[Rfam]
RNA sequence: ACUUGGAGGGGAGGCAAGAUGUUGGCAUAGCUGUUGAUCUAAAAACCUGCUAUGCCAACGUAUUGCCAUCUUUCUCGUCU
Numbered sequence: 001a002c003u004u005g006g007a008g009g010g011g012a013g014g015c016a017a018g019a020u021g022u023u024g025g026c027a028u029a030g031c032u033g034u035u036g037a038u039c040u041a042a043a044a045a046c047c048u049g050c051u052a053u054g055c056c057a058a059c060g061u062a063u064u065g066c067c068a069u070c071u072u073u074c075u076c077g078u079c080u
Stems, first nucleotide, its partner, number of pairs: 005075007013067005019061003023057009
About this RNA
The family of this 80-nucleotide sequence from Pelodiscus sinensis is "mir-31 microRNA precursor family". The family's consensus secondary structure was predicted with RNAalifold. A search with the family's covariance model found it, with a score of 74 bits. On this family, see Aravin et al., Dev Cell 2003: "The small RNA profile during Drosophila melanogaster development".